Source information:
A member of the RNA family "MIR2619 microRNA precursor family" from Medicago truncatula, 163 nucleotides long. The base pairs follow the family's consensus structure, which was predicted with RNAalifold. A search with the family's covariance model found it, with a score of 120 bits.
RNA sequence: AAACAACCCUCUAUGUUUUGAUUCUUUUGGCCCCCCAAGGCAAAAAAAUAAAUAAAAUUUUUGACACGUGGCACCUCACUUAGGGUGCCACGUCAGAGUUGACCGAAUCAACAAUGGACUGGGGGUCCAAAACUGCCAAAAAAUUAAAACUAGGGGGCUGUUU
Numbered sequence: 001a002a003a004c005a006a007c008c009c010u011c012u013a014u015g016u017u018u019u020g021a022u023u024c025u026u027u028u029g030g031c032c033c034c035c036c037a038a039g040g041c042a043a044a045a046a047a048a049u050a051a052a053u054a055a056a057a058u059u060u061u062u063g064a065c066a067c068g069u070g071g072c073a074c075c076u077c078a079c080u081u082a083g084g085g086u087g088c089c090a091c092g093u094c095a096g097a098g099u100u101g102a103c104c105g106a107a108u109c110a111a112c113a114a115u116g117g118a119c120u121g122g123g124g125g126u127c128c129a130a131a132a133c134u135g136c137c138a139a140a141a142a143a144u145u146a147a148a149a150c151u152a153g154g155g156g157g158c159u160g161u162u163u
Stems, first nucleotide, its partner, number of pairs: 001163002004160002007157002012152002015150009025140001026131005032125006066093002069090007